[Rfam]
Nucleotides: 143
Base pairs, nucleotide, nucleotide: 002058003057004056005055006054007053010049011048016043017042018041019040020039021038022037089123091121092120093119096115097114098113099112
Number, partner (000 for none) and nucleotide at each position: 001000c002058c003057g004056u005055u006054c007053u008000u009000g010049u011048g012000u013000u014000a015000u016043u017042c018041g019040c020039u021038g022037a023000a024000u025000u026000u027000g028000u029000a030000c031000u032000c033000c034000c035000a036000u037022u038021c039020a040019g041018c042017g043016a044000u045000u046000g047000u048011c049010a050000a051000a052000c053007a054006g055005a056004a057003c058002g059000c060000a061000c062000a063000g064000a065000a066000a067000a068000u069000u070000c071000c072000a073000a074000g075000u076000c077000a078000g079000c080000g081000g082000a083000a084000u085000c086000c087000a088000c089123a090000u091121u092120g093119u094000u095000g096115a097114g098113c099112c100000u101000a102000u103000a104000u105000a106000c107000a108000a109000c110000a111000a112099g113098g114097c115096u116000u117000c118000u119093a120092c121091a122000u123089u124000a125000c126000u127000a128000a129000u130000u131000c132000c133000u134000g135000g136000c137000c138000a139000c140000a141000u142000u143000c